RNA sequence: UUGGCAUGAUGAGGAAAGUUAUAGAUUUUCUGAUCCACUGGAUGAGAAAUUCCUCCUACUCAUUCUGA
Number, nucleotide and partner (000 for none) at each position: 001u000002u000003g000004g000005c000006a063007u062008g061009a060010u000011g000012a000013g000014g000015a000016a000017a000018g000019u000020u000021a000022u000023a000024g000025a000026u047027u046028u000029u000030c041031u000032g000033a000034u000035c000036c000037a000038c000039u000040g000041g030042a000043u000044g000045a000046g027047a026048a000049a000050u000051u000052c000053c000054u000055c000056c000057u000058a000059c000060u009061c008062a007063u006064u000065c000066u000067g000068a000
A member of the RNA family "Small nucleolar RNA Z105" from Panicum miliaceum, 68 nucleotides long. A reference for the family is Chen et al. (2003), "The high diversity of snoRNAs in plants: identification and comparative study of 120 snoRNA genes from Oryza sativa", Nucleic Acids Res. The source organism's lineage runs through Eukaryota, Magnoliopsida, Liliopsida, Panicodae and Panicum sect. Panicum. The family's RNA type in Rfam is C/D-box small nucleolar RNA. The match comes from Rfam's covariance-model search (64 bits). Its family is annotated with RNA processing and nucleolus in the Gene Ontology.